The record is a 137-nucleotide RNA from Gossypium hirsutum, which matches "mir-399 microRNA precursor family" in Rfam. On this family, see Jones-Rhoades and Bartel, Mol Cell 2004: "Computational Identification of Plant MicroRNAs and Their Targets, Including a Stress-Induced miRNA". Pairs were carried over by alignment from the consensus structure, which was predicted with PFOLD. It scores 59 bits against the family's covariance model. Rfam links the family to the GO terms RISC complex and miRNA-mediated post-transcriptional gene silencing. mir-399 was identified in both Arabidopsis thaliana and Oryza sativa computationally and was later experimentally verified. mir-399 is thought to target mRNAs coding for a phosphatase transporter. The mature sequence is excised from the 3' arm of the hairpin.
[Rfam]
RNA sequence: GGGUGCAUUACUGGGUGAAUCUCCUUUGGAAGGCAACUAAAACUCGGUUACAUCGCAUGUUGGCAUGCAUGUGGUGGGCGACAUGCGAUGGCGAUGCCUAGCUCACUGCCAAAGGAGAUUUGCCCCGCAAUUCAGCC
Numbered sequence: 001g002g003g004u005g006c007a008u009u010a011c012u013g014g015g016u017g018a019a020u021c022u023c024c025u026u027u028g029g030a031a032g033g034c035a036a037c038u039a040a041a042a043c044u045c046g047g048u049u050a051c052a053u054c055g056c057a058u059g060u061u062g063g064c065a066u067g068c069a070u071g072u073g074g075u076g077g078g079c080g081a082c083a084u085g086c087g088a089u090g091g092c093g094a095u096g097c098c099u100a101g102c103u104c105a106c107u108g109c110c111a112a113a114g115g116a117g118a119u120u121u122g123c124c125c126c127g128c129a130a131u132u133c134a135g136c137c
Base pairs, nucleotide, nucleotide: 005133007131008130009129011127013125014124015123016122017121018120019119021117022116023115024114027111028110029109031107032106035103